[Rfam]
RNA: Histone 3' UTR stem-loop
Organism: Cimex lectularius
RNA sequence: UCAACGGCCCUUUUCAGGGCCACCACACAUUUCACUACUCAAUUUUG
Numbered sequence: 001u002c003a004a005c006g007g008c009c010c011u012u013u014u015c016a017g018g019g020c021c022a023c024c025a026c027a028c029a030u031u032u033c034a035c036u037a038c039u040c041a042a043u044u045u046u047g
Stems, first nucleotide, its partner, number of pairs: 006021006